Rfam assigns this 208-nucleotide RNA sequence from Actinospica acidithermotolerans to the family "c-di-AMP riboswitch aptamer (ydaO/yuaA leader)".
[Rfam]
RNA sequence: UGAUCGCGAACGCCUAAUCCAGCCCUUCGAUCACGGCAACCAAACCCAGUGGGGCUGGAGCGGAGGAACCAACUUCCGCCCGGUGACGGGAUUAUCCCCCGUCCCGCGGCUAGGGGUGAAUCCUUCUGGGGACCGUGGUCUUCCGGGGUAGGGCUACUUUCCGGCCCGAAUCCGACAGCUCACUUCGCAGGCGUGGGAGAGGAAAAGA
Numbered sequence: 001u002g003a004u005c006g007c008g009a010a011c012g013c014c015u016a017a018u019c020c021a022g023c024c025c026u027u028c029g030a031u032c033a034c035g036g037c038a039a040c041c042a043a044a045c046c047c048a049g050u051g052g053g054g055c056u057g058g059a060g061c062g063g064a065g066g067a068a069c070c071a072a073c074u075u076c077c078g079c080c081c082g083g084u085g086a087c088g089g090g091a092u093u094a095u096c097c098c099c100c101g102u103c104c105c106g107c108g109g110c111u112a113g114g115g116g117u118g119a120a121u122c123c124u125u126c127u128g129g130g131g132a133c134c135g136u137g138g139u140c141u142u143c144c145g146g147g148g149u150a151g152g153g154c155u156a157c158u159u160u161c162c163g164g165c166c167c168g169a170a171u172c173c174g175a176c177a178g179c180u181c182a183c184u185u186c187g188c189a190g191g192c193g194u195g196g197g198a199g200a201g202g203a204a205a206a207g208a
Stems, first nucleotide, its partner, number of pairs: 011193004018059009060188006070113001114173003122148004151167004
Gene Ontology terms of the family: cyclic-di-AMP binding and regulation of gene expression.